[Rfam]
RNA sequence: UCACAGUGCACUAUUACUCACGGUACGAGUUGACAAGGCCAUAGCGCGUACCAGAAGUAAUAAUGAACAGUGA
Dot-bracket structure: ........((.(((((((...((((((.(...............).))))))...))))))).))........
mir-126 microRNA precursor family: a 73-nucleotide RNA sequence from Pangasianodon hypophthalmus. The match comes from Rfam's covariance-model search (54 bits). Pairs were carried over by alignment from the consensus structure, which was predicted with RNAalifold.